[Rfam]
RNA sequence: GGAUUCACAAUGAGCUAUGUUUACUGAGCAUGAUGCAGUGAAGUUCAAUAAAAAAAAUCCUACUCAUUC
Numbered sequence: 001g002g003a004u005u006c007a008c009a010a011u012g013a014g015c016u017a018u019g020u021u022u023a024c025u026g027a028g029c030a031u032g033a034u035g036c037a038g039u040g041a042a043g044u045u046c047a048a049u050a051a052a053a054a055a056a057a058u059c060c061u062a063c064u065c066a067u068u069c
Stems, first nucleotide, its partner, number of pairs: 002069002005066001012059002020053002025047005
Dot-bracket structure: .((.(......((......((...(((((.............)))))....))....))......).))